The family of this 168-nucleotide RNA sequence from Planococcus halotolerans is "FMN riboswitch aptamer (RFN element)".
A search with the family's covariance model found it, with a score of 108 bits.

RNA sequence: UGAAUUCUUCGGGGCGGGGUGAAAUUCCCCACCGACGGUGAGCAGCGCCCUGCUGCAAGUCCGUGACCCGUAUCCAAAGUAUGGCAACAGCGUUGCCAUACUUUGGAUACGGUGGAGCUGGUGAGAAUCCGGCACCGACAGUUAAAGUCUGGAUGGGAGAAGAAUUCA
Numbered sequence: 001u002g003a004a005u006u007c008u009u010c011g012g013g014g015c016g017g018g019g020u021g022a023a024a025u026u027c028c029c030c031a032c033c034g035a036c037g038g039u040g041a042g043c044a045g046c047g048c049c050c051u052g053c054u055g056c057a058a059g060u061c062c063g064u065g066a067c068c069c070g071u072a073u074c075c076a077a078a079g080u081a082u083g084g085c086a087a088c089a090g091c092g093u094u095g096c097c098a099u100a101c102u103u104u105g106g107a108u109a110c111g112g113u114g115g116a117g118c119u120g121g122u123g124a125g126a127a128u129c130c131g132g133c134a135c136c137g138a139c140a141g142u143u144a145a146a147g148u149c150u151g152g153a154u155g156g157g158a159g160a161a162g163a164a165u166u167c168a
Base pairs, nucleotide, nucleotide: 003166004165005164006163007162008161009160010159017029018028019027031148032147033137034136035064036063037062038061059135060134068112069111070110071109072108073107074106075105076104077103078102079101080100081099082098083097084096085095086094117133118132119131120130121129139151140150141149